[Rfam]
RNA sequence: UCCUCGCUCGAAGAAUCGCAACGAAGCACACACACAGAGCACUUUCGAGUGUCUCGUCGCCGCUUUGGGAGAAAGUCCCCGGACAUCAGUCUUCUUGACUGCACUUUCAGCAACGAACCGCCAUAGAAGCGCGGCUUCCUACCGAUCACGGCACUUCUUCGCGCUCCUUUCCGCCUGCACUCUUCUCCCUCGCUUUUCCGAUGCCGCUCGUGGAGGGGCUGGCACCAGGGCGAUGAUAUGAGCCCGCUGGCUACCUUGCUUGUUGUCGCUGAGGGAUCGCGAGAGCCGGGAGGAGGACGGUAGAUGUCGGAGCUGUGUCAGGUAUGGAAGGCCUUCUCGUCCAGUUUAUGGUUAUGCGAUUGUCAUCCGCACUUCUCGGUCAAACGGGACGUUUCGGACGAUAACUCAAUGGGGCUUAUUCUUGACGCGAGG
Numbered sequence: 001u002c003c004u005c006g007c008u009c010g011a012a013g014a015a016u017c018g019c020a021a022c023g024a025a026g027c028a029c030a031c032a033c034a035c036a037g038a039g040c041a042c043u044u045u046c047g048a049g050u051g052u053c054u055c056g057u058c059g060c061c062g063c064u065u066u067g068g069g070a071g072a073a074a075g076u077c078c079c080c081g082g083a084c085a086u087c088a089g090u091c092u093u094c095u096u097g098a099c100u101g102c103a104c105u106u107u108c109a110g111c112a113a114c115g116a117a118c119c120g121c122c123a124u125a126g127a128a129g130c131g132c133g134g135c136u137u138c139c140u141a142c143c144g145a146u147c148a149c150g151g152c153a154c155u156u157c158u159u160c161g162c163g164c165u166c167c168u169u170u171c172c173g174c175c176u177g178c179a180c181u182c183u184u185c186u187c188c189c190u191c192g193c194u195u196u197u198c199c200g201a202u203g204c205c206g207c208u209c210g211u212g213g214a215g216g217g218g219c220u221g222g223c224a225c226c227a228g229g230g231c232g233a234u235g236a237u238a239u240g241a242g243c244c245c246g247c248u249g250g251c252u253a254c255c256u257u258g259c260u261u262g263u264u265g266u267c268g269c270u271g272a273g274g275g276a277u278c279g280c281g282a283g284a285g286c287c288g289g290g291a292g293g294a295g296g297a298c299g300g301u302a303g304a305u306g307u308c309g310g311a312g313c314u315g316u317g318u319c320a321g322g323u324a325u326g327g328a329a330g331g332c333c334u335u336c337u338c339g340u341c342c343a344g345u346u347u348a349u350g351g352u353u354a355u356g357c358g359a360u361u362g363u364c365a366u367c368c369g370c371a372c373u374u375c376u377c378g379g380u381c382a383a384a385c386g387g388g389a390c391g392u393u394u395c396g397g398a399c400g401a402u403a404a405c406u407c408a409a410u411g412g413g414g415c416u417u418a419u420u421c422u423u424g425a426c427g428c429g430a431g432g
Base pairs, nucleotide, nucleotide: 002432003431004430005429006428007427008425009424010423011422014361015360016359017358018357019356022067023066024065025064026063027062037052039050040049042047073417074416075415077414078413079412080411228245229244230243231242249333250332251331256329257328259326261324263321264320265319266315268313269312299308300307301306363401364400366398367397368396

This 432-nucleotide RNA from Phaeosphaeriaceae sp. SRC1lsM3a belongs to the Rfam family "RNase MRP". Pairs were carried over by alignment from the consensus structure, which is taken from published work. It is annotated as a ribozyme. The family has 66 seed sequences and 3,510 matches in Rfam 15.1. Its family is annotated with rRNA processing, ribonuclease MRP activity and ribonuclease MRP complex in the Gene Ontology. A reference for the family is Schmitt et al. (1993), "Secondary structure of RNase MRP RNA as predicted by phylogenetic comparison", FASEB J. A search with the family's covariance model found it, with a score of 88 bits.